[Rfam]
Nucleotides: 064
Stems, first nucleotide, its partner, number of pairs: 010025004016055002019052003032045004
Number, partner (000 for none) and nucleotide at each position: 001000a002000c003000g004000u005000u006000c007000g008000c009000a010025g011024g012023c013022g014000a015000u016055g017054g018000c019052g020051u021050u022013c023012g024011c025010c026000g027000a028000a029000a030000g031000c032045g033044u034043u035042u036000g037000g038000c039000g040000a041000c042035a043034a044033g045032c046000u047000g048000a049000u050021g051020a052019c053000u054017c055016c056000u057000g058000u059000u060000u061000u062000c063000a064000u
This 64-nucleotide RNA from Trichloromonas acetexigens belongs to the Rfam family "Fluoride riboswitch aptamer (crcB RNA motif)". It scores 46 bits against the family's covariance model. The base pairs follow the family's consensus structure, which is taken from published work. Lineage of the source: Bacteria > Desulfuromonadia > Desulfuromonadales > Trichloromonadaceae > Trichloromonas. Gene Ontology terms of the family: response to fluoride and positive regulation of gene expression.